RNA sequence: CCCCCGGUGGGAAGCGAAGACCCCAUGGAGCUUUACUGCAGCCUGCCGUUGCCACGCGGCGAGGGGUGCGCAGCGUAGGCGGGAGGCGUCGAAGCCCGGCCUCCGGGUCGGGUGGAGCCGUCCAUGAGACACCGCCCACUCCUCGCCGCGUGGCUAACCCCCGAAAGGGGGGACAGCGGUAGGUGGGCAGUUUGGCUGGGGCGGCACGCCCCCGAAAAGGUAUCGGGGGCGCCCUAAGGUCGGCUCAGGCGGGUCAGGAAUCCGCCGUAGAGUGCAAGGGCAAAAGCCGGCCUGACUGGACCCGUAACAGAGGCGGGUCCAGCCCCGAAAGGGUGGCCUAGCGAACCCCUGUGCCUCCCCGGUGGGGGCCAGGGAUGACAGAAAAGCUACCCUGGGGAUAACAGAGUCGUCUCGGGCGAGAGCCCAUAUCGACCCCGAGGCUUGCUACCUCGCUGUCGGCUCUCCCCAUCCUGGCCCUGCAGCAGGGGCCAAGGGUGGGGGUGUUCACCCAUUAAAGGGGAACGUGAGCUGGGUUUAGACCGUCGUGAGACAGGUCGGAUGCUAUCUACCGGGGGUGUU
Numbered sequence: 001c002c003c004c005c006g007g008u009g010g011g012a013a014g015c016g017a018a019g020a021c022c023c024c025a026u027g028g029a030g031c032u033u034u035a036c037u038g039c040a041g042c043c044u045g046c047c048g049u050u051g052c053c054a055c056g057c058g059g060c061g062a063g064g065g066g067u068g069c070g071c072a073g074c075g076u077a078g079g080c081g082g083g084a085g086g087c088g089u090c091g092a093a094g095c096c097c098g099g100c101c102u103c104c105g106g107g108u109c110g111g112g113u114g115g116a117g118c119c120g121u122c123c124a125u126g127a128g129a130c131a132c133c134g135c136c137c138a139c140u141c142c143u144c145g146c147c148g149c150g151u152g153g154c155u156a157a158c159c160c161c162c163g164a165a166a167g168g169g170g171g172g173a174c175a176g177c178g179g180u181a182g183g184u185g186g187g188c189a190g191u192u193u194g195g196c197u198g199g200g201g202c203g204g205c206a207c208g209c210c211c212c213c214g215a216a217a218a219g220g221u222a223u224c225g226g227g228g229g230c231g232c233c234c235u236a237a238g239g240u241c242g243g244c245u246c247a248g249g250c251g252g253g254u255c256a257g258g259a260a261u262c263c264g265c266c267g268u269a270g271a272g273u274g275c276a277a278g279g280g281c282a283a284a285a286g287c288c289g290g291c292c293u294g295a296c297u298g299g300a301c302c303c304g305u306a307a308c309a310g311a312g313g314c315g316g317g318u319c320c321a322g323c324c325c326c327g328a329a330a331g332g333g334u335g336g337c338c339u340a341g342c343g344a345a346c347c348c349c350u351g352u353g354c355c356u357c358c359c360c361g362g363u364g365g366g367g368g369c370c371a372g373g374g375a376u377g378a379c380a381g382a383a384a385a386g387c388u389a390c391c392c393u394g395g396g397g398a399u400a401a402c403a404g405a406g407u408c409g410u411c412u413c414g415g416g417c418g419a420g421a422g423c424c425c426a427u428a429u430c431g432a433c434c435c436c437g438a439g440g441c442u443u444g445c446u447a448c449c450u451c452g453c454u455g456u457c458g459g460c461u462c463u464c465c466c467c468a469u470c471c472u473g474g475c476c477c478u479g480c481a482g483c484a485g486g487g488g489c490c491a492a493g494g495g496u497g498g499g500g501g502u503g504u505u506c507a508c509c510c511a512u513u514a515a516a517g518g519g520g521a522a523c524g525u526g527a528g529c530u531g532g533g534u535u536u537a538g539a540c541c542g543u544c545g546u547g548a549g550a551c552a553g554g555u556c557g558g559a560u561g562c563u564a565u566c567u568a569c570c571g572g573g574g575g576u577g578u579u
Stems, first nucleotide, its partner, number of pairs: 001575008010567003014562002022396004027392002029388005035191004042183007051154018078136005085119003097110005158171004194207001195205003208230006233336002239291006245271002248266006272281002296322009324333001326331001347374005353369005405446003409443001410440007420430002457532001458530004462524001463521005470495002474489005498510003538556004542551003